[Rfam]
RNA sequence: GCCACCCCUAACCCGACGGGGAACAGGCCGUAAACCUUCACCGGCUUGGGGUGGUAACCUUUGAAGGG
Numbered sequence: 001g002c003c004a005c006c007c008c009u010a011a012c013c014c015g016a017c018g019g020g021g022a023a024c025a026g027g028c029c030g031u032a033a034a035c036c037u038u039c040a041c042c043g044g045c046u047u048g049g050g051g052u053g054g055u056a057a058c059c060u061u062u063g064a065a066g067g068g
Stems, first nucleotide, its partner, number of pairs: 001055008012021003027045004035068004
Description:
Rfam assigns this 68-nucleotide RNA sequence to the family "int-alpA RNA". Rfam describes the family as follows. Acidobacteria (1 example), Planctomycetes (1 example), Proteobacteria. Rfam classes the family as a small RNA. The match comes from Rfam's covariance-model search (40 bits).